[Rfam]
RNA sequence: CGCCAAAUCCUGCCGCUGCCCGGCGCCUCGAACCAGGCACUGCACGGCAGGAGCGGGGGACCCAAGGUAAGUCGCCGAUCCCGGUGUUCCGGGACGGCUUGGGGUGAAGCCGCUCUCUUUCCGCGGCCGGGCAUCUCCCGCCCGAACCCGACAGCUCACCUCGCCGGCGUCGGAGAG
Numbered sequence: 001c002g003c004c005a006a007a008u009c010c011u012g013c014c015g016c017u018g019c020c021c022g023g024c025g026c027c028u029c030g031a032a033c034c035a036g037g038c039a040c041u042g043c044a045c046g047g048c049a050g051g052a053g054c055g056g057g058g059g060a061c062c063c064a065a066g067g068u069a070a071g072u073c074g075c076c077g078a079u080c081c082c083g084g085u086g087u088u089c090c091g092g093g094a095c096g097g098c099u100u101g102g103g104g105u106g107a108a109g110c111c112g113c114u115c116u117c118u119u120u121c122c123g124c125g126g127c128c129g130g131g132c133a134u135c136u137c138c139c140g141c142c143c144g145a146a147c148c149c150g151a152c153a154g155c156u157c158a159c160c161u162c163g164c165c166g167g168c169g170u171c172g173g174a175g176a177g
Stems, first nucleotide, its partner, number of pairs: 001169004008052008053164006063101004102149003110126004129143004
RNA: c-di-AMP riboswitch aptamer (ydaO/yuaA leader)